[Rfam]
RNA sequence: GGCGAUAAAUGGACGUCGUAAUAAGCCGUUCGGACCCGGGGGCAGUACCCGGCGCCUCCACCAUCAGCCCAUUCGGCGUUUGGGGCAAUCGGCCCUGAAAGUCCAGUGGGUUGCUGAUGGGGGCGAACUAGGAUCGACGAGGGUGUAAAGGGCGCGCUUUUGCUCGGCAUGAUACCGCCGUCAUCGGGUCAUUCAGAAUAGUUGCCAAUGACAACUAUGCUGAGGCUGCUCUCGCUGCGUAA
Numbered sequence: 001g002g003c004g005a006u007a008a009a010u011g012g013a014c015g016u017c018g019u020a021a022u023a024a025g026c027c028g029u030u031c032g033g034a035c036c037c038g039g040g041g042g043c044a045g046u047a048c049c050c051g052g053c054g055c056c057u058c059c060a061c062c063a064u065c066a067g068c069c070c071a072u073u074c075g076g077c078g079u080u081u082g083g084g085g086c087a088a089u090c091g092g093c094c095c096u097g098a099a100a101g102u103c104c105a106g107u108g109g110g111u112u113g114c115u116g117a118u119g120g121g122g123g124c125g126a127a128c129u130a131g132g133a134u135c136g137a138c139g140a141g142g143g144u145g146u147a148a149a150g151g152g153c154g155c156g157c158u159u160u161u162g163c164u165c166g167g168c169a170u171g172a173u174a175c176c177g178c179c180g181u182c183a184u185c186g187g188g189u190c191a192u193u194c195a196g197a198a199u200a201g202u203u204g205c206c207a208a209u210g211a212c213a214a215c216u217a218u219g220c221u222g223a224g225g226c227u228g229c230u231c232u233c234g235c236u237g238c239g240u241a242a
Stems, first nucleotide, its partner, number of pairs: 001164005014154004026143002030140003036052005053125007165180004
The family of this 242-nucleotide RNA sequence from Hyphomicrobium nitrativorans is "permuted transfer-messenger RNA".
Pairs were carried over by alignment from the consensus structure, which is taken from published work.
The source organism's lineage runs through Bacteria, Pseudomonadati, Hyphomicrobiaceae, Hyphomicrobium and Hyphomicrobium nitrativorans.